[Rfam]
RNA sequence: GGGCAUAAACGAGCGUGUAAUAAGCGGACUGGACCCGGGUGCGAUUCCCGGCGGCUCCACCAAUACUCCUCCAGGUAUCGCUGGGGAGCGCGGGGCCGAUCAGCAUCGACAGACGUGUAAAGGCGUAUCUUUGUCCCGGCGUGGCUCACCGUUUCGGGCCAUUAAACUAAAUGCGAACGAUAACUUCGCUGAAGAGUACGCUGUCGCCGCGUAA
Numbered sequence: 001g002g003g004c005a006u007a008a009a010c011g012a013g014c015g016u017g018u019a020a021u022a023a024g025c026g027g028a029c030u031g032g033a034c035c036c037g038g039g040u041g042c043g044a045u046u047c048c049c050g051g052c053g054g055c056u057c058c059a060c061c062a063a064u065a066c067u068c069c070u071c072c073a074g075g076u077a078u079c080g081c082u083g084g085g086g087a088g089c090g091c092g093g094g095g096c097c098g099a100u101c102a103g104c105a106u107c108g109a110c111a112g113a114c115g116u117g118u119a120a121a122g123g124c125g126u127a128u129c130u131u132u133g134u135c136c137c138g139g140c141g142u143g144g145c146u147c148a149c150c151g152u153u154u155c156g157g158g159c160c161a162u163u164a165a166a167c168u169a170a171a172u173g174c175g176a177a178c179g180a181u182a183a184c185u186u187c188g189c190u191g192a193a194g195a196g197u198a199c200g201c202u203g204u205c206g207c208c209g210c211g212u213a214a
Base pairs, nucleotide, nucleotide: 001136002135003134004133005132013126014125015124016123025115026114029112030111031110035051036050037049038048039047052098053097054096055095056094057093058092137151138150139149
Shown here is a 214-nucleotide RNA from Caulobacter mirabilis, a member of the family "permuted transfer-messenger RNA". About the family: Bacterial tmRNA, also known as 10Sa RNA or SsrA, is named for its dual tRNA and mRNA-like properties. Its role is to liberate the mRNA from a stalled ribosome. To accomplish this part of the tmRNA is used as a reading frame that ends in a translation stop signal. The broken mRNA is replaced in the ribosome by the tmRNA and translation of the tmRNA leads to addition of a proteolysis tag to the incomplete protein enabling recognition by a protease. The source organism's lineage runs through Bacteria, Pseudomonadati, Alphaproteobacteria, Caulobacteraceae and Caulobacter. For this family Rfam cites "Variations on the tmRNA gene" (Mao et al., RNA Biol, 2010). The base pairs follow the family's consensus structure, which is taken from published work.